c-di-GMP-I riboswitch aptamer: an 83-nucleotide RNA from Tepidibacillus sp. HK-1. A search with the family's covariance model found it, with a score of 67 bits. Lineage of the source: Bacteria > Bacilli > Caryophanales > Bacillaceae > Tepidibacillus.
RNA sequence: GAUAUAUUUUGGCAAACCUAUUGAAAGGUAGGGACGCAAAGCUAUGGGCCUAAGGGAUUAACUAUGGUUGCCAGGUUGCACUU
Numbered sequence: 001g002a003u004a005u006a007u008u009u010u011g012g013c014a015a016a017c018c019u020a021u022u023g024a025a026a027g028g029u030a031g032g033g034a035c036g037c038a039a040a041g042c043u044a045u046g047g048g049c050c051u052a053a054g055g056g057a058u059u060a061a062c063u064a065u066g067g068u069u070g071c072c073a074g075g076u077u078g079c080a081c082u083u
Base pairs, nucleotide, nucleotide: 012037013036017032018031019030020029021028022027040077041076042075043074045073046072047071048068049067050066055062